[Rfam]
RNA sequence: UGCGCAGCGCGUGUUUCAUCACGAUGUUGCCGAAACUGACGCCCUUGAGCCGAGCGGUUCGGAUAUAUUGCGCCGUCAUGACCUCGGCCAUCGAGGCGCGGGUCAUCCGCGCGACGUAUCCCAGCCCGUAAAGGGCGAUGGUGAUGACCGGCAGGAAGAAAUUCUCGAACGUGAUGUUC
Numbered sequence: 001u002g003c004g005c006a007g008c009g010c011g012u013g014u015u016u017c018a019u020c021a022c023g024a025u026g027u028u029g030c031c032g033a034a035a036c037u038g039a040c041g042c043c044c045u046u047g048a049g050c051c052g053a054g055c056g057g058u059u060c061g062g063a064u065a066u067a068u069u070g071c072g073c074c075g076u077c078a079u080g081a082c083c084u085c086g087g088c089c090a091u092c093g094a095g096g097c098g099c100g101g102g103u104c105a106u107c108c109g110c111g112c113g114a115c116g117u118a119u120c121c122c123a124g125c126c127c128g129u130a131a132a133g134g135g136c137g138a139u140g141g142u143g144a145u146g147a148c149c150g151g152c153a154g155g156a157a158g159a160a161a162u163u164c165u166c167g168a169a170c171g172u173g174a175u176g177u178u179c
Base pairs, nucleotide, nucleotide: 005140006139008137009136010135012133014131015130016128028123029122040111041110042109046105047104048103050101051100052099054097055075056074057073058072060070061069062068082096083095084094085093086092146178147177151172152171154165155164156163157162
RNA: Ruegeria cis52 sRNA
Organism: Pseudaestuariivita atlantica